[Rfam]
RNA sequence: UAGGGUGACCAACCACUCCGGUUUGCCUGGGACAGGGAACUUUCAGUAUUAAAGCUAGGCCAGUCCCAGGCAAACUGGGAGAGUGGGUCCCCAUAGGUCUAG
Numbered sequence: 001u002a003g004g005g006u007g008a009c010c011a012a013c014c015a016c017u018c019c020g021g022u023u024u025g026c027c028u029g030g031g032a033c034a035g036g037g038a039a040c041u042u043u044c045a046g047u048a049u050u051a052a053a054g055c056u057a058g059g060c061c062a063g064u065c066c067c068a069g070g071c072a073a074a075c076u077g078g079g080a081g082a083g084u085g086g087g088u089c090c091c092c093a094u095a096g097g098u099c100u101a102g
Stems, first nucleotide, its partner, number of pairs: 001095002004092002007089004012084002019077015035061002043058001045056003

The record is a 102-nucleotide RNA from Myotis lucifugus, which matches "mir-584 microRNA precursor family" in Rfam. For this family Rfam cites "Patterns of known and novel small RNAs in human cervical cancer" (Lui et al., Cancer Res, 2007). The family's consensus secondary structure was predicted with RNAalifold. Lineage of the source: Eukaryota > Metazoa > Eumetazoa > Sarcopterygii > Myotis.